[Rfam]
RNA sequence: GAGCUGUGAGGAUACAAGCGCAUAAUGAUGGAUUGGAUUUCAUCUCUAACGUCUGAUGUACAGGCGAGAUUGGUGCGCAUCUGAGCUC
Numbered sequence: 001g002a003g004c005u006g007u008g009a010g011g012a013u014a015c016a017a018g019c020g021c022a023u024a025a026u027g028a029u030g031g032a033u034u035g036g037a038u039u040u041c042a043u044c045u046c047u048a049a050c051g052u053c054u055g056a057u058g059u060a061c062a063g064g065c066g067a068g069a070u071u072g073g074u075g076c077g078c079a080u081c082u083g084a085g086c087u088c
Stems, first nucleotide, its partner, number of pairs: 001088004
RNA: small nucleolar RNA snoR114